[Rfam]
A member of the RNA family "RAGATH-13 RNA" from Legionella longbeachae, 95 nucleotides long.
Gene Ontology term of the family: catalytic activity.
The source organism's lineage runs through Bacteria, Pseudomonadati, Legionellales, Legionella and Legionella longbeachae.
Rfam 15.1 lists 49 matches to the family in 31 species.
RNA sequence: AUUGAUUUGCCCCCUUCUUCGAGCUUUACGGUUUUUACCGGGUUUCAACAGAGAGUGAGCCGCUCGACCAACACUAAACAAUACACAGGGCAAAU
Numbered sequence: 001a002u003u004g005a006u007u008u009g010c011c012c013c014c015u016u017c018u019u020c021g022a023g024c025u026u027u028a029c030g031g032u033u034u035u036u037a038c039c040g041g042g043u044u045u046c047a048a049c050a051g052a053g054a055g056u057g058a059g060c061c062g063c064u065c066g067a068c069c070a071a072c073a074c075u076a077a078a079c080a081a082u083a084c085a086c087a088g089g090g091c092a093a094a095u
Stems, first nucleotide, its partner, number of pairs: 005095008019067006029040004041061003045058002
Dot-bracket structure: ....((((((((......((((((....((((....))))(((.((..........)))))))))))....................))))))))